RNA sequence: AUGGAAGUGAUCAUUCAUCCAAGGGUUUUUAAGAGCGAGGGCUGAGGGAUUCCUCACCCUCCUAUGCUGCUUGUGCUUAGUCAUUUUCUAUGCUGACUACAACAUGAAGCUUUUGCUCUGAAAGCUAGCAAAGUCUAUGGCGACUGCACACCUGGCAAACCGGCAAGUCACAGAACGGCACGCUCACGAGUUU
Numbered sequence: 001a002u003g004g005a006a007g008u009g010a011u012c013a014u015u016c017a018u019c020c021a022a023g024g025g026u027u028u029u030u031a032a033g034a035g036c037g038a039g040g041g042c043u044g045a046g047g048g049a050u051u052c053c054u055c056a057c058c059c060u061c062c063u064a065u066g067c068u069g070c071u072u073g074u075g076c077u078u079a080g081u082c083a084u085u086u087u088c089u090a091u092g093c094u095g096a097c098u099a100c101a102a103c104a105u106g107a108a109g110c111u112u113u114u115g116c117u118c119u120g121a122a123a124g125c126u127a128g129c130a131a132a133g134u135c136u137a138u139g140g141c142g143a144c145u146g147c148a149c150a151c152c153u154g155g156c157a158a159a160c161c162g163g164c165a166a167g168u169c170a171c172a173g174a175a176c177g178g179c180a181c182g183c184u185c186a187c188g189a190g191u192u193u
Stems, first nucleotide, its partner, number of pairs: 039063003066160001068157003082146002182191003
Shown here is a 193-nucleotide RNA sequence from Salix koriyanagi, a member of the family "Early nodulin 40". Gene Ontology term of the family: nodulation. The literature on the family includes a 2007 paper in Nucleic Acids Res by Gultyaev and Roussis, "Identification of conserved secondary structures and expansion segments in enod40 RNAs reveals new enod40 homologues in plants". Rfam classes the family as a non-coding RNA gene. NCBI's taxonomy places the organism under Eukaryota, Mesangiospermae, Malpighiales, Salicaceae, Salix.